This 69-nucleotide RNA sequence from Leersia perrieri belongs to the Rfam family "Small nucleolar RNA Z169". It scores 79 bits against the family's covariance model. For this family Rfam cites "The high diversity of snoRNAs in plants: identification and comparative study of 120 snoRNA genes from Oryza sativa" (Chen et al., Nucleic Acids Res, 2003). Its family is annotated with RNA processing and nucleolus in the Gene Ontology. Rfam classes the family as a C/D-box small nucleolar RNA.
RNA sequence: GUGGCAAUGAUGACAAAUCGAUUCAAUGAUGUACUUUGAUUAAUUGUAGAUCGCAAUGCUCUGAGCCAC
Numbered sequence: 001g002u003g004g005c006a007a008u009g010a011u012g013a014c015a016a017a018u019c020g021a022u023u024c025a026a027u028g029a030u031g032u033a034c035u036u037u038g039a040u041u042a043a044u045u046g047u048a049g050a051u052c053g054c055a056a057u058g059c060u061c062u063g064a065g066c067c068a069c
Base pairs, nucleotide, nucleotide: 001069002068003067004066005065